[Rfam]
RNA sequence: GCUGAUGAUGAUAUAAUCCAAUUUGUUGAGGUGUUGUGAAGCCAAGCCCCUGUCUUCAGGGAGAACCUACUUGGCGAAGCUCCAUUCAUAUGACAUUAAUGGAUUUAACUGAGGC
Numbered sequence: 001g002c003u004g005a006u007g008a009u010g011a012u013a014u015a016a017u018c019c020a021a022u023u024u025g026u027u028g029a030g031g032u033g034u035u036g037u038g039a040a041g042c043c044a045a046g047c048c049c050c051u052g053u054c055u056u057c058a059g060g061g062a063g064a065a066c067c068u069a070c071u072u073g074g075c076g077a078a079g080c081u082c083c084a085u086u087c088a089u090a091u092g093a094c095a096u097u098a099a100u101g102g103a104u105u106u107a108a109c110u111g112a113g114g115c
Stems, first nucleotide, its partner, number of pairs: 001115003048061005
Shown here is a 115-nucleotide RNA sequence from Cicer arietinum, a member of the family "Small nucleolar RNA Z278". Taxonomically the source falls in Cicer (Eukaryota, Streptophyta, Euphyllophyta, Papilionoideae). Rfam's curators write: snoZ278 is a C/D box small nucleolar RNA. Its methylation guide targets have not been reported. The base pairs follow the family's consensus structure, which was predicted with PFOLD. For this family Rfam cites "The high diversity of snoRNAs in plants: identification and comparative study of 120 snoRNA genes from Oryza sativa" (Chen et al., Nucleic Acids Res, 2003). It scores 59 bits against the family's covariance model. By type it is a C/D-box small nucleolar RNA.